[Rfam]
RNA sequence: CUCAGGGAAGCCGAAAACUGAAAAGAGUAGGCA
Numbered sequence: 001c002u003c004a005g006g007g008a009a010g011c012c013g014a015a016a017a018c019u020g021a022a023a024a025g026a027g028u029a030g031g032c033a
Stems, first nucleotide, its partner, number of pairs: 003020003010032003
Source information:
Shown here is a 33-nucleotide RNA, a member of the family "DUF805b RNA". The sequence is in the family's curated seed alignment. It is annotated as a cis-regulatory element.